DUF805b RNA: a 33-nucleotide sequence.
Pairs were carried over by alignment from the consensus structure, which is taken from published work.
Rfam's curators put it in the seed alignment.
The family's RNA type in Rfam is cis-regulatory element.

RNA sequence: UCCGGAGAUGCCGAAAACCGAAUAGAGUAGGCA
Numbered sequence: 001u002c003c004g005g006a007g008a009u010g011c012c013g014a015a016a017a018c019c020g021a022a023u024a025g026a027g028u029a030g031g032c033a
Stems, first nucleotide, its partner, number of pairs: 003020003010032003